[Rfam]
Record summary:
Rfam assigns this 70-nucleotide RNA sequence from Drosophila willistoni to the family "mir-318 microRNA precursor family". Pairs were carried over by alignment from the consensus structure, which was predicted with RNAalifold. For this family Rfam cites "Evolution of genes and genomes on the Drosophila phylogeny" (Clark et al., Nature, 2007). Taxonomically the source falls in Sophophora (Eukaryota, Protostomia, Panarthropoda, Muscomorpha).

RNA sequence: UUUAUGGGAUACACCAAGUUCAGUUUUGUCGCAUUCCACGAGCAUCACUGGGCUUUGUUUAUCUCAUAGA
Numbered sequence: 001u002u003u004a005u006g007g008g009a010u011a012c013a014c015c016a017a018g019u020u021c022a023g024u025u026u027u028g029u030c031g032c033a034u035u036c037c038a039c040g041a042g043c044a045u046c047a048c049u050g051g052g053c054u055u056u057g058u059u060u061a062u063c064u065c066a067u068a069g070a
Stems, first nucleotide, its partner, number of pairs: 002069010013058002017054008027044003

Gene Ontology terms of the family: RISC complex and miRNA-mediated post-transcriptional gene silencing.